The family of this 63-nucleotide RNA from Pelotomaculum propionicicum is "Fluoride riboswitch aptamer (crcB RNA motif)". NCBI's taxonomy places the organism under Bacteria, Clostridia, Eubacteriales, Desulfotomaculaceae, Pelotomaculum. It scores 42 bits against the family's covariance model.
RNA sequence: AAAACAAGCGGUGAUGGAGCCCGCCGCGCAAAUGCCAUUAUGGCUAAUAGCUCCUACCAAAAG
Numbered sequence: 001a002a003a004a005c006a007a008g009c010g011g012u013g014a015u016g017g018a019g020c021c022c023g024c025c026g027c028g029c030a031a032a033u034g035c036c037a038u039u040a041u042g043g044c045u046a047a048u049a050g051c052u053c054c055u056a057c058c059a060a061a062a063g
Stems, first nucleotide, its partner, number of pairs: 010025004016054005034044003